[Rfam]
RNA sequence: GCUGACGGUGAUGAGUUGCACUAUUUGGCAGGUUGCUAAUUGCAGUGGCAUAGCAGGCCUGUCCUGAUAAAUUGUGUUGACACCCCAUUGUGCACAGGGGCCAUCUGAGUCACC
Numbered sequence: 001g002c003u004g005a006c007g008g009u010g011a012u013g014a015g016u017u018g019c020a021c022u023a024u025u026u027g028g029c030a031g032g033u034u035g036c037u038a039a040u041u042g043c044a045g046u047g048g049c050a051u052a053g054c055a056g057g058c059c060u061g062u063c064c065u066g067a068u069a070a071a072u073u074g075u076g077u078u079g080a081c082a083c084c085c086c087a088u089u090g091u092g093c094a095c096a097g098g099g100g101c102c103a104u105c106u107g108a109g110u111c112a113c114c
Stems, first nucleotide, its partner, number of pairs: 004113001007110001025067002027064002029061004033056003041050003
RNA: Small nucleolar RNA SNORD67
Organism: Parambassis ranga